[Rfam]
RNA sequence: UCCGUUCUGGGAGGCGUUGAAACGCGUGCUCGUGUUCCGGUCGCCUGAGCCGCGUUGAGCCACUGGCGAGCCCGACCCCGUUCGCA
Numbered sequence: 001u002c003c004g005u006u007c008u009g010g011g012a013g014g015c016g017u018u019g020a021a022a023c024g025c026g027u028g029c030u031c032g033u034g035u036u037c038c039g040g041u042c043g044c045c046u047g048a049g050c051c052g053c054g055u056u057g058a059g060c061c062a063c064u065g066g067c068g069a070g071c072c073c074g075a076c077c078c079c080g081u082u083c084g085c086a
Stems, first nucleotide, its partner, number of pairs: 001086001003084002007080001009078003013061003022055005028050003039073002041069005
Dot-bracket structure: (.((..(.(((.(((......(((((.(((........[[[[[[[..))))))))...)))...]]]]]..]]..))).)..)).)
A member of the RNA family "c-di-GMP-II-GCG riboswitch aptamer", 86 nucleotides long.
The base pairs follow the family's consensus structure, which is taken from published work.